[Rfam]
RNA sequence: UGAAAGUCCCGGACGCAAGCCGGAAUUGAGCCAUGCUUGCUUGAGCGAUUUCACGGGUAUCGACGGCAAAGCCCGUAUGAGCAAGGAGCGCGAUAGCGCGGAUGCGAAAUGCUGGCGACGAUUGCGGGAGCACCAAAGGUGCGGAGCAAUCGGCUUUCAU
Numbered sequence: 001u002g003a004a005a006g007u008c009c010c011g012g013a014c015g016c017a018a019g020c021c022g023g024a025a026u027u028g029a030g031c032c033a034u035g036c037u038u039g040c041u042u043g044a045g046c047g048a049u050u051u052c053a054c055g056g057g058u059a060u061c062g063a064c065g066g067c068a069a070a071g072c073c074c075g076u077a078u079g080a081g082c083a084a085g086g087a088g089c090g091c092g093a094u095a096g097c098g099c100g101g102a103u104g105c106g107a108a109a110u111g112c113u114g115g116c117g118a119c120g121a122u123u124g125c126g127g128g129a130g131c132a133c134c135a136a137a138g139g140u141g142c143g144g145a146g147c148a149a150u151c152g153g154c155u156u157u158c159a160u
Stems, first nucleotide, its partner, number of pairs: 001159007009066003018058001020056003023052003030046001032043002035040001071116003075112004081105003088099004119152007130142004
Dot-bracket structure: (((((((.(((......(.((((((....(.((.(....).))..)...))).))).).....)))....(((.((((..(((....((((....))))...)))...)))).)))..(((((((....((((.....))))...)))))))))))))).